[Rfam]
RNA sequence: GAAUUUGUGAGAACCAUUUGAAUCAAGUAAUGGAAAUGAUUCAAAUGGUUCUU
Numbered sequence: 001g002a003a004u005u006u007g008u009g010a011g012a013a014c015c016a017u018u019u020g021a022a023u024c025a026a027g028u029a030a031u032g033g034a035a036a037u038g039a040u041u042c043a044a045a046u047g048g049u050u051c052u053u
Base pairs, nucleotide, nucleotide: 009053010052011051012050013049014048015047016046017045018044019043020042021041022040023039024038025037
A member of the RNA family "Plastid-ccsA-ndhD-1 3UTR RNA" from Malus domestica, 53 nucleotides long. Plastid-ccsA-ndhD-1 is a non-coding RNA (ncRNA) recognised in plastids. It was found in the three prime untranslated region (3UTR) of ccsA and ndhD genes, its 3UTR location suggests a role in transcript maturation. On this family, see Richter et al., Plant Commun 2023: "Retrograde signaling in plants: A critical review focusing on the GUN pathway and beyond". The family's consensus secondary structure was predicted with LocARNA. NCBI's taxonomy places the organism under Eukaryota, Tracheophyta, Magnoliopsida, Rosaceae, Malus. Rfam 15.1 lists 1,322 matches to the family in 557 species.